[Rfam]
Shown here is a 171-nucleotide sequence from Aegilops tauschii, a member of the family "MIR2118 microRNA precursor family".
RNA sequence: GCUAGGAAGAGGAAGAAAGGGAGGGUGUAAGGGAAGUGGGGAUGAGAACAUAGAGGAAACCAUAACUUUAAUGGUUCUUUACCUCUUUUCUUGAGGUGGAAAUUCAGUUUGGCGUUUCCGGAUGCCUCUCAUUCCAUUGUUCUUAGGCGCUCCUUCCUAUUCCUUUUUGUU
Dot-bracket structure: ........(((.(.(((...(((..(.((((((.(.(.(((((((((.(((...((((((.....................................................))))))..)))..)))))))))).).)))))).)..))).))).).))).........

The family has 7 seed sequences and 2,377 matches in Rfam 15.1.